[Rfam]
MIR398 microRNA precursor family: a 101-nucleotide sequence from Nicotiana tabacum. Rfam 15.1 lists 627 matches to the family in 211 species. The organism belongs to Nicotiana, within Eukaryota. It scores 59 bits against the family's covariance model. A reference for the family is Jones-Rhoades and Bartel (2004), "Computational identification of plant microRNAs and their targets, including a stress-induced miRNA", Mol Cell.
RNA sequence: AAAUGUUCAACGGGGGCAACCUGAGAUCAUGUGUACGACAUUUUUUGUUUUUGAUAAUUUUAGUAAUACAUAUGUUCUCAGGUCGCCCCUGUAGAACUAUU
Numbered sequence: 001a002a003a004u005g006u007u008c009a010a011c012g013g014g015g016g017c018a019a020c021c022u023g024a025g026a027u028c029a030u031g032u033g034u035a036c037g038a039c040a041u042u043u044u045u046u047g048u049u050u051u052u053g054a055u056a057a058u059u060u061u062a063g064u065a066a067u068a069c070a071u072a073u074g075u076u077c078u079c080a081g082g083u084c085g086c087c088c089c090u091g092u093a094g095a096a097c098u099a100u101u
Stems, first nucleotide, its partner, number of pairs: 007095002011091004016086002019083001023079004028074005